Small nucleolar RNA snoR53Y: an 81-nucleotide RNA from Phoenix dactylifera.
RNA sequence: GUUCCCAAUGAUGCGUAUACCAACCAUGCUAAUGCUGAGGUCAUUUGCUGAAGAACUCAUUAUGUUUUUUUUGAGGGAACU
Number, nucleotide and partner (000 for none) at each position: 001g080002u079003u078004c077005c076006c000007a000008a000009u000010g000011a000012u000013g000014c000015g000016u000017a000018u000019a000020c000021c000022a000023a000024c000025c000026a000027u000028g000029c000030u000031a000032a000033u000034g000035c000036u000037g000038a000039g000040g000041u000042c000043a000044u000045u000046u000047g000048c000049u000050g000051a000052a000053g000054a000055a000056c000057u000058c000059a000060u000061u000062a000063u000064g000065u000066u000067u000068u000069u000070u000071u000072u000073g000074a000075g000076g005077g004078a003079a002080c001081u000
On this family, see Brown et al., RNA 2001: "Multiple snoRNA gene clusters from Arabidopsis". NCBI's taxonomy places the organism under Eukaryota, Euphyllophyta, Spermatophyta, Arecaceae, Phoenix.